[Rfam]
The record is a 62-nucleotide RNA from Pongo abelii, which matches "U7 small nuclear RNA" in Rfam. A search with the family's covariance model found it, with a score of 36 bits. Rfam's curators write: Animal histone pre-mRNAs are spliced by a different mechanism than nuclear pre-mRNAs and self-splicing introns. The family's consensus secondary structure was predicted with PFOLD.
RNA sequence: CGAAGUUACAGCUUUCAGAAUUUGUUUAGCAGGUUUCCCAGUUUUCACUUGAAAAUGCCCCG
Numbered sequence: 001c002g003a004a005g006u007u008a009c010a011g012c013u014u015u016c017a018g019a020a021u022u023u024g025u026u027u028a029g030c031a032g033g034u035u036u037c038c039c040a041g042u043u044u045u046c047a048c049u050u051g052a053a054a055a056u057g058c059c060c061c062g
Stems, first nucleotide, its partner, number of pairs: 032059003035054002038051001040049003